[Rfam]
RNA sequence: ACGUCCUUAGUUCAGUCGGUAGAACGCAGGUUUCCAAAACCUGAUGUCGUGGGUUCAAUUCCUACAGGGCGUG
Numbered sequence: 001a002c003g004u005c006c007u008u009a010g011u012u013c014a015g016u017c018g019g020u021a022g023a024a025c026g027c028a029g030g031u032u033u034c035c036a037a038a039a040c041c042u043g044a045u046g047u048c049g050u051g052g053g054u055u056c057a058a059u060u061c062c063u064a065c066a067g068g069g070c071g072u073g
Stems, first nucleotide, its partner, number of pairs: 001072007010025004027043005049065005
Rfam assigns this 73-nucleotide sequence from Chlamydomonas reinhardtii to the family "tRNA". The organism belongs to Chlamydomonas, within Eukaryota. Transfer RNA (tRNA) molecules are approximately 80 nucleotides in length. Their secondary structure includes four short double-helical elements and three loops (D, anti-codon, and T loops).